[Rfam]
Nucleotides: 194
Base pairs, nucleotide, nucleotide: 003067004066005065006064011060012059013058018055019054020053021052023050024049025048026047027046028045029044030043031042032041130188132186133185134184135183136182138181148169149168150167151166152165153164
Number, partner (000 for none) and nucleotide at each position: 001000c002000g003067g004066c005065a006064c007000u008000u009000u010000u011060u012059g013058g014000g015000u016000u017000u018055u019054u020053u021052a022000a023050g024049a025048g026047g027046a028045a029044g030043u031042g032041a033000u034000u035000u036000u037000u038000g039000a040000u041032u042031u043030g044029c045028u046027u047026u048025c049024u050023c051000g052021u053020a054019g055018a056000g057000a058013c059012c060011a061000a062000u063000a064006g065005u066004g067003c068000a069000u070000a071000c072000a073000g074000u075000g076000a077000a078000c079000g080000c081000c082000u083000g084000a085000u086000u087000c088000g089000c090000a091000c092000c093000g094000u095000u096000u097000u098000g099000g100000u101000g102000g103000g104000a105000g106000u107000u108000a109000g110000g111000c112000a113000g114000c115000g116000g117000c118000c119000a120000g121000a122000c123000a124000a125000c126000c127000g128000u129000a130188g131000u132186g133185a134184u135183g136182g137000u138181a139000u140000c141000c142000a143000c144000a145000g146000a147000u148169g149168g150167c151166g152165g153164g154000c155000u156000a157000u158000a159000u160000c161000u162000g163000u164153c165152c166151c167150g168149u169148u170000u171000g172000u173000c174000u175000a176000c177000u178000g179000a180000u181138u182136c183135c184134a185133u186132c187000u188130c189000a190000c191000a192000u193000u194000u